RNA sequence: CUGCGGGAGGCUUGGACGCGCGGCCCAGAUUCGUGCCGCCGGGACCGCGCCGAGCCACUGGCGAGACCGACCCGCGGAUGA
Numbered sequence: 001c002u003g004c005g006g007g008a009g010g011c012u013u014g015g016a017c018g019c020g021c022g023g024c025c026c027a028g029a030u031u032c033g034u035g036c037c038g039c040c041g042g043g044a045c046c047g048c049g050c051c052g053a054g055c056c057a058c059u060g061g062c063g064a065g066a067c068c069g070a071c072c073c074g075c076g077g078a079u080g081a
Base pairs, nucleotide, nucleotide: 001077002076003075004074005073006072007071009056010055011054018050019049020048021047022046023045025043035067037063038062039061040060

This 81-nucleotide RNA belongs to the Rfam family "c-di-GMP-II-GAG riboswitch aptamer". Rfam's curators put it in the seed alignment. Its Rfam clan is "c-di-GMP_II riboswitch clan".